[Rfam]
RNA sequence: AGGAAGAGACAGGUAAAGGCUGGGAACAGGCGGAGCAUGGAUGGAGCUCCUAGCAGAAAUGUCUGUUUUGGCUCUACCCAUGCACUGCCUCUUCCCUGGCUUGUGGCUUCUUCCUUGUC
Numbered sequence: 001a002g003g004a005a006g007a008g009a010c011a012g013g014u015a016a017a018g019g020c021u022g023g024g025a026a027c028a029g030g031c032g033g034a035g036c037a038u039g040g041a042u043g044g045a046g047c048u049c050c051u052a053g054c055a056g057a058a059a060u061g062u063c064u065g066u067u068u069u070g071g072c073u074c075u076a077c078c079c080a081u082g083c084a085c086u087g088c089c090u091c092u093u094c095c096c097u098g099g100c101u102u103g104u105g106g107c108u109u110c111u112u113c114c115u116u117g118u119c
Base pairs, nucleotide, nucleotide: 016102017101018100020098022096023095024094025093026092028090029089030088031087032086033085035083036082037081038080039079040078044074045073
Dot-bracket structure: ...............(((.(.(((((.((((((.((((((...((...........................))...)))))).)))))).))))).).))).................